[Rfam]
RNA sequence: UUGACAGCCCUGGAGACUGAAAUCCUCCUGUUUAUCCACAGAGCAGAUACAGCGCGGGCAGCGGCAGUGGCGGAGCAAGCUUCCCCCACACCGCCCCGACCCUCUGCCUGAACGCUGAGUUGGAGGAACCACCUCUAAAGGUGAGAGGGGUUGUUCAGUCUCCACGACCCAUUCAAUCCUCG
Numbered sequence: 001u002u003g004a005c006a007g008c009c010c011u012g013g014a015g016a017c018u019g020a021a022a023u024c025c026u027c028c029u030g031u032u033u034a035u036c037c038a039c040a041g042a043g044c045a046g047a048u049a050c051a052g053c054g055c056g057g058g059c060a061g062c063g064g065c066a067g068u069g070g071c072g073g074a075g076c077a078a079g080c081u082u083c084c085c086c087c088a089c090a091c092c093g094c095c096c097c098g099a100c101c102c103u104c105u106g107c108c109u110g111a112a113c114g115c116u117g118a119g120u121u122g123g124a125g126g127a128a129c130c131a132c133c134u135c136u137a138a139a140g141g142u143g144a145g146a147g148g149g150g151u152u153g154u155u156c157a158g159u160c161u162c163c164a165c166g167a168c169c170c171a172u173u174c175a176a177u178c179c180u181c182g
Stems, first nucleotide, its partner, number of pairs: 002175003007168001011164011024150003028147002031145006039117003043113001049109001058107004063102001069095005120138007
This 182-nucleotide sequence from Eurypyga helias belongs to the Rfam family "TUC338". The organism belongs to Eurypyga, within Eukaryota. A search with the family's covariance model found it, with a score of 147 bits. Pairs were carried over by alignment from the consensus structure, which was predicted with WAR.